[Rfam]
RNA sequence: CGUUUGGUGUGCAACUUCGGGUUGUAUAGCGAGACGGCCUAAAAAAUAAGGU
Numbered sequence: 001c002g003u004u005u006g007g008u009g010u011g012c013a014a015c016u017u018c019g020g021g022u023u024g025u026a027u028a029g030c031g032a033g034a035c036g037g038c039c040u041a042a043a044a045a046a047u048a049a050g051g052u
Stems, first nucleotide, its partner, number of pairs: 001036005007030002011025005

The record is a 52-nucleotide RNA from Brumicola nitratireducens, which matches "L31-Gammaproteobacteria ribosomal protein leader" in Rfam.
Pairs were carried over by alignment from the consensus structure, which is taken from published work.